[Rfam]
The record is a 108-nucleotide RNA sequence from Qipengyuania pelagi, which matches "TPP riboswitch aptamer (THI element)" in Rfam.

RNA sequence: GAGCCAUCCCCGGGGAGCGUGCUGACGCUGAGAGGGGCGCGUAGCACCGCCCGACCCGUUGAACCUGAACCGAUUAAGAUCGGCGGAGGGAGUGGGCGGGCCUCAUCC
Numbered sequence: 001g002a003g004c005c006a007u008c009c010c011c012g013g014g015g016a017g018c019g020u021g022c023u024g025a026c027g028c029u030g031a032g033a034g035g036g037g038c039g040c041g042u043a044g045c046a047c048c049g050c051c052c053g054a055c056c057c058g059u060u061g062a063a064c065c066u067g068a069a070c071c072g073a074u075u076a077a078g079a080u081c082g083g084c085g086g087a088g089g090g091a092g093u094g095g096g097c098g099g100g101c102c103u104c105a106u107c108c
Stems, first nucleotide, its partner, number of pairs: 007096003011058004017028004035052005064089003070083004